[Rfam]
RNA sequence: CCUCUUCAAAUUCACAGAACCAAGGCCUAUAUUCGUCCUGUCUCUUCGGGGACUAUGGACAUAAAUGCGCUCGUAAUAAGCGGAUCGGACCCGGGGGCGGUACCCGGCGUCUCCACCAAACAUCCUUCAUUUGGGGAUCAUGGGGACGAAAUAGGAUCGACGAACGUCUAAAGGGGUUAGCUUUGUCUCGGCUGUCUGCCACCGUUACCGGCGAAAACUGUACAAUUGCAAAUGACAAUCGUGCUCCGGUAGCCCUCGCUGCGUAAGCAGUUCGGAAAACCGAAAACUUAAGUCCUCUCGCUUUGCAGCGUUUGGCGGGGUUCGCAGGUACCUGGCAACAGAAACCUGCACU
Number, nucleotide and partner (000 for none) at each position: 001c000002c000003u000004c000005u000006u000007c000008a000009a000010a000011u000012u000013c000014a000015c000016a000017g000018a000019a000020c000021c000022a000023a000024g000025g000026c000027c000028u000029a000030u000031a000032u000033u000034c000035g000036u000037c000038c000039u000040g053041u052042c051043u050044c049045u000046u000047c000048g000049g044050g043051g042052a041053c040054u000055a000056u000057g188058g187059a186060c185061a184062u000063a000064a000065a000066u000067g181068c180069g177070c176071u175072c174073g000074u000075a000076a000077u000078a000079a000080g000081c166082g165083g000084a000085u163086c162087g161088g000089a000090c000091c107092c106093g105094g104095g103096g000097g000098c000099g000100g000101u000102a000103c095104c094105c093106g092107g091108c148109g147110u146111c145112u144113c143114c142115a000116c000117c000118a000119a000120a000121c000122a000123u000124c000125c000126u000127u000128c000129a000130u000131u000132u000133g000134g000135g000136g000137a000138u000139c000140a000141u000142g114143g113144g112145g111146a110147c109148g108149a000150a000151a000152u000153a000154g000155g000156a000157u000158c000159g000160a000161c087162g086163a085164a000165c082166g081167u000168c000169u000170a000171a000172a000173g000174g072175g071176g070177u069178u000179a000180g068181c067182u000183u000184u061185g060186u059187c058188u057189c204190g203191g202192c000193u000194g000195u214196c213197u000198g212199c211200c210201a000202c191203c190204g189205u000206u000207a000208c000209c000210g200211g199212c198213g196214a195215a000216a000217a000218c000219u000220g000221u000222a000223c000224a000225a000226u000227u000228g000229c000230a000231a000232a000233u000234g000235a000236c000237a000238a000239u000240c000241g000242u000243g000244c000245u000246c000247c000248g000249g000250u000251a000252g000253c000254c000255c000256u000257c000258g000259c000260u000261g000262c000263g000264u000265a000266a000267g000268c000269a000270g000271u000272u000273c000274g000275g000276a000277a000278a000279a000280c000281c000282g000283a000284a000285a000286a000287c000288u000289u000290a000291a000292g000293u000294c000295c000296u000297c000298u000299c000300g000301c000302u000303u000304u000305g000306c000307a000308g000309c000310g000311u000312u000313u000314g000315g000316c000317g000318g333319g332320g331321u330322u000323c000324g349325c348326a347327g346328g345329u344330a321331c320332c319333u318334g000335g000336c000337a000338a000339c000340a000341g000342a000343a000344a329345c328346c327347u326348g325349c324350a000351c000352u000
The family of this 352-nucleotide RNA sequence from Parasedimentitalea huanghaiensis is "Alphaproteobacteria transfer-messenger RNA". Bacterial tmRNA, also known as 10Sa RNA or SsrA, is named for its dual tRNA and mRNA-like properties. Its role is to liberate the mRNA from a stalled ribosome. To accomplish this part of the tmRNA is used as a reading frame that ends in a translation stop signal. The broken mRNA is replaced in the ribosome by the tmRNA and translation of the tmRNA leads to addition of a proteolysis tag to the incomplete protein enabling recognition by a protease. The family's consensus secondary structure is taken from published work. The organism belongs to Parasedimentitalea, within Bacteria. Clan: tRNA clan. The match comes from Rfam's covariance-model search (310 bits).